[Rfam]
RNA sequence: UUGACAGUCCAACCGCUACCUGCCUCGGUGAGAUACACCGAGUGGCUUCCUUGGAAGAGGGGAGGCGAGAUGCCAAGCGCACUCUUGAUGACGUAGCACGGAGGACAU
Numbered sequence: 001u002u003g004a005c006a007g008u009c010c011a012a013c014c015g016c017u018a019c020c021u022g023c024c025u026c027g028g029u030g031a032g033a034u035a036c037a038c039c040g041a042g043u044g045g046c047u048u049c050c051u052u053g054g055a056a057g058a059g060g061g062g063a064g065g066c067g068a069g070a071u072g073c074c075a076a077g078c079g080c081a082c083u084c085u086u087g088a089u090g091a092c093g094u095a096g097c098a099c100g101g102a103g104g105a106c107a108u
Base pairs, nucleotide, nucleotide: 007106008105009104010103016096017095018094019093024042025041026040027039028038029037030036046065047064048063049062050061051060052059067084068083069082
This 108-nucleotide RNA sequence belongs to the Rfam family "RAGATH-24 RNA". Rfam classes the family as a small RNA.